[Rfam]
RNA sequence: UAAAAGGGUCUGUUGGCUAAAUAUGCCACGCUCGCCUAGAAUGGUGAGUGCUGUAUGGCUAUCAAGACAUAUGGCCGACAUAAUUUGUGGCAACUUAUAGGGUUGGCUCCUUCUGGCUGACCCUGGC
Numbered sequence: 001u002a003a004a005a006g007g008g009u010c011u012g013u014u015g016g017c018u019a020a021a022u023a024u025g026c027c028a029c030g031c032u033c034g035c036c037u038a039g040a041a042u043g044g045u046g047a048g049u050g051c052u053g054u055a056u057g058g059c060u061a062u063c064a065a066g067a068c069a070u071a072u073g074g075c076c077g078a079c080a081u082a083a084u085u086u087g088u089g090g091c092a093a094c095u096u097a098u099a100g101g102g103u104u105g106g107c108u109c110c111u112u113c114u115g116g117c118u119g120a121c122c123c124u125g126g127c
Stems, first nucleotide, its partner, number of pairs: 008079003012075001014028004029050008051074007098125009110116002
U11 spliceosomal RNA: a 127-nucleotide RNA from Cynara cardunculus. The family's RNA type in Rfam is spliceosomal small nuclear RNA. The family is grouped with related families in Rfam's "U1 clan". Pairs were carried over by alignment from the consensus structure, which is taken from published work.